[Rfam]
RNA sequence: GGCACUGUUAUAGGUGCCAUAGCAGAAGCAUUCACAUCACAACCCCUGACAGGUAAUAACUGGUAAUAUCUGCAAAUUCUGCU
Numbered sequence: 001g002g003c004a005c006u007g008u009u010a011u012a013g014g015u016g017c018c019a020u021a022g023c024a025g026a027a028g029c030a031u032u033c034a035c036a037u038c039a040c041a042a043c044c045c046c047u048g049a050c051a052g053g054u055a056a057u058a059a060c061u062g063g064u065a066a067u068a069u070c071u072g073c074a075a076a077u078u079c080u081g082c083u
Stems, first nucleotide, its partner, number of pairs: 013046002016043001021083007028040001050072006